[Rfam]
Nucleotides: 069
Stems, first nucleotide, its partner, number of pairs: 001069001003067005009061005017053009027042003
Number, partner (000 for none) and nucleotide at each position: 001069g002000u003067c004066g005065g006064u007063c008000c009061u010060c011059g012058g013057u014000a015000g016000u017053g018052a019051c020050c021049c022048u023047c024046c025045g026000a027042c028041c029040c030000c031000c032000g033000g034000u035000c036000a037000u038000c039000c040029g041028g042027g043000a044000c045025c046024g047023g048022a049021g050020g051019g052018u053017u054000u055000c056000g057013a058012u059011c060010g061009a062000c063007g064006a065005c066004c067003g068000c069001c